[Rfam]
RNA sequence: AGAGAUCUUCGGGGUAAGGUGAAAUUCCUGACCGGCGGUGAUUGCCGACAAUAGUCAGCAGCAGCCCGCGACUCACUGCUUUGUUUAUCAAGCAGAUGACUGAUCUGGUGCAAAUCCAGAGCCGACGGUAAAGUCCGGAUGGGAGAAGAUCAAU
Numbered sequence: 001a002g003a004g005a006u007c008u009u010c011g012g013g014g015u016a017a018g019g020u021g022a023a024a025u026u027c028c029u030g031a032c033c034g035g036c037g038g039u040g041a042u043u044g045c046c047g048a049c050a051a052u053a054g055u056c057a058g059c060a061g062c063a064g065c066c067c068g069c070g071a072c073u074c075a076c077u078g079c080u081u082u083g084u085u086u087a088u089c090a091a092g093c094a095g096a097u098g099a100c101u102g103a104u105c106u107g108g109u110g111c112a113a114a115u116c117c118a119g120a121g122c123c124g125a126c127g128g129u130a131a132a133g134u135c136c137g138g139a140u141g142g143g144a145g146a147a148g149a150u151c152a153a154u
Base pairs, nucleotide, nucleotide: 004151005150006149007148008147009146010145017029018028019027031134032133033124034123035069036068037067038066064122065121073099074098104120105119106118107117108116126137127136128135
Dot-bracket structure: ...(((((((......(((.......))).[[((((((.........................[[))))...((.......................))....(((((.......)))))]])).(((....]]))).......)))))))...